[Rfam]
RNA sequence: GGAUGCUUUGAUUGUCCAAACGCAAUUCUUGUUAUUUUAAAUUCAAGGAUUGCCUCUGGACAUCACCGCUGCC
Numbered sequence: 001g002g003a004u005g006c007u008u009u010g011a012u013u014g015u016c017c018a019a020a021c022g023c024a025a026u027u028c029u030u031g032u033u034a035u036u037u038u039a040a041a042u043u044c045a046a047g048g049a050u051u052g053c054c055u056c057u058g059g060a061c062a063u064c065a066c067c068g069c070u071g072c073c
Base pairs, nucleotide, nucleotide: 002072005069006068009065010064011063012062014061015060016059017058018057022053023052024051025050026049027048028047029046030045031044
Rfam assigns this 73-nucleotide RNA from Nesidiocoris tenuis to the family "mir-219 microRNA precursor family". Rfam 15.1 lists 1,318 matches to the family in 774 species.